The record is a 98-nucleotide RNA from Psychrilyobacter sp. S5, which matches "Purine riboswitch aptamer" in Rfam. Rfam describes the family as follows. Riboswitches are metabolite binding domains within certain messenger RNAs that serve as precision sensors for their corresponding targets. Allosteric rearrangement of mRNA structure is mediated by ligand binding, and this results in modulation of gene expression. A class of riboswitches that selectively recognises guanine and becomes saturated at concentrations as low as 5 nM. In Bacillus subtilis, this mRNA motif is located on at least five separate transcriptional units that together encode 17 genes that are mostly involved in purine transport and purine nucleotide biosynthesis. Taxonomically the source falls in Psychrilyobacter (Bacteria, Fusobacteriota, Fusobacteriia, Fusobacteriales).
[Rfam]
RNA sequence: UUAUAACAAUAAUCAAUAACUCAUAUAAGCUAGAAAUAUGGUCUGGUGUCUCUACGGUUAACCUAAAAUUAACCUCUAUGGGUGAAAAGUAAAGGCAG
Number, nucleotide and partner (000 for none) at each position: 001u000002u000003a000004u000005a000006a000007c000008a000009a000010u000011a000012a000013u000014c000015a000016a000017u000018a000019a083020c082021u081022c080023a079024u078025a077026u000027a000028a000029g047030c046031u045032a044033g043034a042035a000036a000037u000038a000039u000040g000041g000042u034043c033044u032045g031046g030047u029048g000049u000050c000051u000052c000053u000054a000055c000056g074057g073058u072059u071060a070061a069062c000063c000064u000065a000066a000067a000068a000069u061070u060071a059072a058073c057074c056075u000076c000077u025078a024079u023080g022081g021082g020083u019084g000085a000086a000087a000088a000089g000090u000091a000092a000093a000094g000095g000096c000097a000098g000